[Rfam]
RNA sequence: UAUUAGGUUGGUGUCAAAGUAAUUGCAGUUUUUGCCAUUUAAAAAGUAACGGCAAAAACUGCAAUUACUUUGGCACCAACCUAAUA
Numbered sequence: 001u002a003u004u005a006g007g008u009u010g011g012u013g014u015c016a017a018a019g020u021a022a023u024u025g026c027a028g029u030u031u032u033u034g035c036c037a038u039u040u041a042a043a044a045a046g047u048a049a050c051g052g053c054a055a056a057a058a059c060u061g062c063a064a065u066u067a068c069u070u071u072g073g074c075a076c077c078a079a080c081c082u083a084a085u086a
Stems, first nucleotide, its partner, number of pairs: 001086036038049002
RNA: mir-548 microRNA precursor family
Organism: Pongo abelii